[Rfam]
RNA sequence: CCAUUAACUAUUAAAAGCUUCGUUUAGGUCCGUUAACUUACUUUUUGGUUUCGUUUUGAUCCCUGAACUCAUCCUCCGUCAACCACUUUGGUCCUUUAUGUUAAGAUGAAUGUAUUAGAGUUAAGGGAUCAAAAUGAAACAAAAAAAUAAGUUUAGAGACCAAAACGAAACCAAAAAAUAAGUUAAGGGAUCAAAACGAAACUUUUAAUAGUUAAGGGA
Numbered sequence: 001c002c003a004u005u006a007a008c009u010a011u012u013a014a015a016a017g018c019u020u021c022g023u024u025u026a027g028g029u030c031c032g033u034u035a036a037c038u039u040a041c042u043u044u045u046u047g048g049u050u051u052c053g054u055u056u057u058g059a060u061c062c063c064u065g066a067a068c069u070c071a072u073c074c075u076c077c078g079u080c081a082a083c084c085a086c087u088u089u090g091g092u093c094c095u096u097u098a099u100g101u102u103a104a105g106a107u108g109a110a111u112g113u114a115u116u117a118g119a120g121u122u123a124a125g126g127g128a129u130c131a132a133a134a135u136g137a138a139a140c141a142a143a144a145a146a147a148u149a150a151g152u153u154u155a156g157a158g159a160c161c162a163a164a165a166c167g168a169a170a171c172c173a174a175a176a177a178a179u180a181a182g183u184u185a186a187g188g189g190a191u192c193a194a195a196a197c198g199a200a201a202c203u204u205u206u207a208a209u210a211g212u213u214a215a216g217g218g219a
Stems, first nucleotide, its partner, number of pairs: 002217001004215005023196003027192003031188001033186008042177002045174003

MIR2655 microRNA precursor family: a 219-nucleotide RNA sequence from Medicago truncatula. The organism belongs to Medicago, within Eukaryota. Gene Ontology terms of the family: miRNA-mediated post-transcriptional gene silencing and RISC complex. The match comes from Rfam's covariance-model search (145 bits).